RNA sequence: AUAGAGAAGGAAGAGACUGACAAAGUGUCUCUGCCAUCGUUGAAAAUUGAGGCAUAACAAACGCCGAGCCAUCGUUUCGGUCGUCAUUUGUUACAUUGGCGAAUCGAUUGUUUCUCGUCUACAU
Numbered sequence: 001a002u003a004g005a006g007a008a009g010g011a012a013g014a015g016a017c018u019g020a021c022a023a024a025g026u027g028u029c030u031c032u033g034c035c036a037u038c039g040u041u042g043a044a045a046a047u048u049g050a051g052g053c054a055u056a057a058c059a060a061a062c063g064c065c066g067a068g069c070c071a072u073c074g075u076u077u078c079g080g081u082c083g084u085c086a087u088u089u090g091u092u093a094c095a096u097u098g099g100c101g102a103a104u105c106g107a108u109u110g111u112u113u114c115u116c117g118u119c120u121a122c123a124u
Stems, first nucleotide, its partner, number of pairs: 008037001010035001013031005063119001065117004071108004081102006089095001
Small nucleolar RNA snoR111: a 124-nucleotide sequence from Cicer arietinum. The literature on the family includes a 2002 paper in Curr Biol by Marker et al., "Experimental RNomics: identification of 140 candidates for small non-messenger RNAs in the plant Arabidopsis thaliana". NCBI's taxonomy places the organism under Eukaryota, Tracheophyta, Gunneridae, Cicereae, Cicer. The match comes from Rfam's covariance-model search (91 bits).